[Rfam]
Nucleotides: 088
Stems, first nucleotide, its partner, number of pairs: 001088005
Number, partner (000 for none) and nucleotide at each position: 001088g002087g003086g004085c005084u006000g007000a008000u009000g010000a011000u012000g013000a014000u015000a016000g017000a018000u019000u020000u021000a022000a023000a024000u025000u026000a027000u028000c029000u030000u031000a032000g033000c034000g035000g036000a037000u038000u039000u040000c041000a042000g043000u044000g045000a046000g047000a048000c049000a050000g051000g052000u053000u054000u055000c056000a057000a058000u059000g060000a061000u062000c063000u064000c065000a066000u067000u068000a069000u070000g071000u072000u073000a074000c075000a076000c077000a078000c079000a080000c081000u082000g083000a084005a085004g086003c087002c088001c
The family of this 88-nucleotide RNA from Camphora micrantha is "Small nucleolar RNA R11/Z151". The match comes from Rfam's covariance-model search (85 bits). Rfam links the family to the GO terms RNA processing and nucleolus. The source organism's lineage runs through Eukaryota, Streptophytina, Tracheophyta, Euphyllophyta and Camphora. By type it is a C/D-box small nucleolar RNA.